The family of this 64-nucleotide RNA from Chryseolinea serpens is "DUF805 RNA". The base pairs follow the family's consensus structure, which is taken from published work.

RNA sequence: GUUCAGUGGAGCAGCACCACUUAAAAAACGGGCGCAUCCGAAAAGCCUGAUGAGUAGGAAGUAA
Dot-bracket structure: .....((((.......))))..........(((....[[.....))).........]]......